[Rfam]
RNA sequence: CAUAGUUCUGUAUUCUGUAACGGGUUGGAUCCGACGCCUCUUGAAGGCUACUAUAGGCUCUCCUCCCCAACUCCUACUCAAUACGUCCGCGACGUACAGAACGGUAACUUGUCGCCUAAAUAUCCAAGCAUGGGUACCCGGGGAAACCCACCCCCUUGGGCGGAUGGGCGGCAAGGCUGAAUCGACAGGG
Numbered sequence: 001c002a003u004a005g006u007u008c009u010g011u012a013u014u015c016u017g018u019a020a021c022g023g024g025u026u027g028g029a030u031c032c033g034a035c036g037c038c039u040c041u042u043g044a045a046g047g048c049u050a051c052u053a054u055a056g057g058c059u060c061u062c063c064u065c066c067c068c069a070a071c072u073c074c075u076a077c078u079c080a081a082u083a084c085g086u087c088c089g090c091g092a093c094g095u096a097c098a099g100a101a102c103g104g105u106a107a108c109u110u111g112u113c114g115c116c117u118a119a120a121u122a123u124c125c126a127a128g129c130a131u132g133g134g135u136a137c138c139c140g141g142g143g144a145a146a147c148c149c150a151c152c153c154c155c156u157u158g159g160g161c162g163g164a165u166g167g168g169c170g171g172c173a174a175g176g177c178u179g180a181a182u183c184g185a186c187a188g189g190g
Base pairs, nucleotide, nucleotide: 013100014099022068023067024066027063028062029061031057032056072190073189074188075187078185079184081182082181083095084094085093087104088103108175109174110173111172112171113170114169115168116167117166122165123164124163125162131150132149133148134147135146153160154159
Background: A member of the RNA family "drz-agam-2-2 ribozyme" from Anopheles sinensis, 190 nucleotides long. It scores 176 bits against the family's covariance model.